[Rfam]
RNA sequence: CGGGGAAAGAAGACCCUGUUGAGCUUGACUCUAGUUUGACAUUGUGAAAAGACAUAGGGGGUGUAGAAUAAGUGGGAGCUACGGCAAACGUGAAAUACCACUACCCUUAUCGUCUUUUUACUUAUUCAAUGAAGCGGAAUUGAGAGGAAACUCUCACCUUUUGGAUUUAAAGUAUUUUACAUGCUGAUCCGGGUUGAAGACAUUGUCAGGUGGGGAGUUUGGCUGGGGCGGCACAUCUGUUAAAAGAUAACGCAGGUGUCCUAAGGGGAGCUCAUGAAGAACAGAAAUCUUCAGUAGAACAAAAGGGUAAAAGCUUCCUUGAUUUUGAUUUUCAGUGUGAAUACAAACCAUGAAAGUGUGGCCUAUCGAUCCUUUAUGACCUUAGAAUUUAAGGCUAGAGGUGCCAGAAAAGUUACCACAGGGAUAACUGGCUUGUGGCAGCCAAGCGUUCAUAGCGACGUUGCUUUUUGAUCCUUCGAUGUCGGCUCUUCCUAUCAUACUGAAGCAGAAUUCAGUAAGCGUUGGAUUGUUCACCCACUAAUAGGGAACGUGAGCUGGGUUUAGACCGUCGUGAGACAGGUUAGUUUUACCCUA
Numbered sequence: 001c002g003g004g005g006a007a008a009g010a011a012g013a014c015c016c017u018g019u020u021g022a023g024c025u026u027g028a029c030u031c032u033a034g035u036u037u038g039a040c041a042u043u044g045u046g047a048a049a050a051g052a053c054a055u056a057g058g059g060g061g062u063g064u065a066g067a068a069u070a071a072g073u074g075g076g077a078g079c080u081a082c083g084g085c086a087a088a089c090g091u092g093a094a095a096u097a098c099c100a101c102u103a104c105c106c107u108u109a110u111c112g113u114c115u116u117u118u119u120a121c122u123u124a125u126u127c128a129a130u131g132a133a134g135c136g137g138a139a140u141u142g143a144g145a146g147g148a149a150a151c152u153c154u155c156a157c158c159u160u161u162u163g164g165a166u167u168u169a170a171a172g173u174a175u176u177u178u179a180c181a182u183g184c185u186g187a188u189c190c191g192g193g194u195u196g197a198a199g200a201c202a203u204u205g206u207c208a209g210g211u212g213g214g215g216a217g218u219u220u221g222g223c224u225g226g227g228g229c230g231g232c233a234c235a236u237c238u239g240u241u242a243a244a245a246g247a248u249a250a251c252g253c254a255g256g257u258g259u260c261c262u263a264a265g266g267g268g269a270g271c272u273c274a275u276g277a278a279g280a281a282c283a284g285a286a287a288u289c290u291u292c293a294g295u296a297g298a299a300c301a302a303a304a305g306g307g308u309a310a311a312a313g314c315u316u317c318c319u320u321g322a323u324u325u326u327g328a329u330u331u332u333c334a335g336u337g338u339g340a341a342u343a344c345a346a347a348c349c350a351u352g353a354a355a356g357u358g359u360g361g362c363c364u365a366u367c368g369a370u371c372c373u374u375u376a377u378g379a380c381c382u383u384a385g386a387a388u389u390u391a392a393g394g395c396u397a398g399a400g401g402u403g404c405c406a407g408a409a410a411a412g413u414u415a416c417c418a419c420a421g422g423g424a425u426a427a428c429u430g431g432c433u434u435g436u437g438g439c440a441g442c443c444a445a446g447c448g449u450u451c452a453u454a455g456c457g458a459c460g461u462u463g464c465u466u467u468u469u470g471a472u473c474c475u476u477c478g479a480u481g482u483c484g485g486c487u488c489u490u491c492c493u494a495u496c497a498u499a500c501u502g503a504a505g506c507a508g509a510a511u512u513c514a515g516u517a518a519g520c521g522u523u524g525g526a527u528u529g530u531u532c533a534c535c536c537a538c539u540a541a542u543a544g545g546g547a548a549c550g551u552g553a554g555c556u557g558g559g560u561u562u563a564g565a566c567c568g569u570c571g572u573g574a575g576a577c578a579g580g581u582u583a584g585u586u587u588u589a590c591c592c593u594a
Base pairs, nucleotide, nucleotide: 003593004592005591007588008587015422016421017420018419020418021417022414023413024412025411026410028218029217030216031215035210036209037208038207039206040205041204044121045120046119047118048117049116050115051114052113053112054110055109056108057107058106059105060104071102072101073100074099075098078085079084125198126197127196128195129194135191136190137189138188143154144153145152146151171185172184173183174182175181221234222232223231224230235257236256237255238254239253240252260361261360266318267317268316269315270314271313272298273297275293276292277291278290279289280288299308300307323347324346325345328342329341330340331339349358350357351356372400373399374398375397376396380394381393382392383391431472433470435469437465438464439463440462441461442460446456447455483558484556485555486554487553488550489547490546491545492544493543496521499516500515501514502513503512504511523537524536525535527533564582565581566580567579568577569576570575
RNA: Eukaryotic large subunit ribosomal RNA, nucleotides 2428 to 3021
Organism: Wallemia ichthyophaga